[Rfam]
RNA sequence: CUGAGAAGUAGAGGUGCAUUAAAUAUCAGUAUCGAUAAGUAGGGUGAUGCCGCUGAUCUAUCGAGAAAGGAUUUGAUGCCGAAGUGACAUAGCAUAUCGGGGCUAGUUGCUGGGGCUGUGACCAAAUAGGGACAGCACUGCCAUAGUAUUUCUUAUCUGGAAGAUAAGAAUUUUUAUAUUAAUGACGAACCAUUAAUAUGGCUAUGGAGCGCUACUGAUAGG
Numbered sequence: 001c002u003g004a005g006a007a008g009u010a011g012a013g014g015u016g017c018a019u020u021a022a023a024u025a026u027c028a029g030u031a032u033c034g035a036u037a038a039g040u041a042g043g044g045u046g047a048u049g050c051c052g053c054u055g056a057u058c059u060a061u062c063g064a065g066a067a068a069g070g071a072u073u074u075g076a077u078g079c080c081g082a083a084g085u086g087a088c089a090u091a092g093c094a095u096a097u098c099g100g101g102g103c104u105a106g107u108u109g110c111u112g113g114g115g116c117u118g119u120g121a122c123c124a125a126a127u128a129g130g131g132a133c134a135g136c137a138c139u140g141c142c143a144u145a146g147u148a149u150u151u152c153u154u155a156u157c158u159g160g161a162a163g164a165u166a167a168g169a170a171u172u173u174u175u176a177u178a179u180u181a182a183u184g185a186c187g188a189a190c191c192a193u194u195a196a197u198a199u200g201g202c203u204a205u206g207g208a209g210c211g212c213u214a215c216u217g218a219u220a221g222g
Stems, first nucleotide, its partner, number of pairs: 007216005016079009032064006039057001083111006090105004112139002115136005122129001141207007